About this RNA:
The record is an 88-nucleotide RNA sequence from Niallia circulans, which matches "Glycine riboswitch aptamer" in Rfam.
RNA sequence: GCUCUGGAGAGUGCUUACAAGUAAAUGUGUAAGCCACCAAAGGGGACAGCCGACAUUAUCGGUAAACUUUCAGGUGCAAGGACAGAGC
Numbered sequence: 001g002c003u004c005u006g007g008a009g010a011g012u013g014c015u016u017a018c019a020a021g022u023a024a025a026u027g028u029g030u031a032a033g034c035c036a037c038c039a040a041a042g043g044g045g046a047c048a049g050c051c052g053a054c055a056u057u058a059u060c061g062g063u064a065a066a067c068u069u070u071c072a073g074g075u076g077c078a079a080g081g082a083c084a085g086a087g088c
Base pairs, nucleotide, nucleotide: 001088002087003086004085005084006083013034014033015032016031017030018029019028036075037074038073040070043069044068045067050061